Small nucleolar RNA SNORD116: a 92-nucleotide sequence from Chrysochloris asiatica. The match comes from Rfam's covariance-model search (78 bits).
[Rfam]
RNA sequence: GGAUUGAUGGUGAUAUCCACAUAAACAUUUCUUAGAAAAGCUGAACAAAUGAGUGAAAAGUCACCAUCAUCUCACUCUUAGAACUGAGGUCC
Numbered sequence: 001g002g003a004u005u006g007a008u009g010g011u012g013a014u015a016u017c018c019a020c021a022u023a024a025a026c027a028u029u030u031c032u033u034a035g036a037a038a039a040g041c042u043g044a045a046c047a048a049a050u051g052a053g054u055g056a057a058a059a060g061u062c063a064c065c066a067u068c069a070u071c072u073c074a075c076u077c078u079u080a081g082a083a084c085u086g087a088g089g090u091c092c
Base pairs, nucleotide, nucleotide: 001092002091003090004089005088026055027054028053029052030051032047035046
Source information
The source organism's lineage runs through Eukaryota, Vertebrata, Tetrapoda, Mammalia and Chrysochloris. The base pairs follow the family's consensus structure, which was predicted with PFOLD. Gene Ontology terms of the family: RNA processing and nucleolus. The literature on the family includes a 2000 paper in Proc Natl Acad Sci U S A by Cavaille et al., "Identification of brain-specific and imprinted small nucleolar RNA genes exhibiting an unusual genomic organization".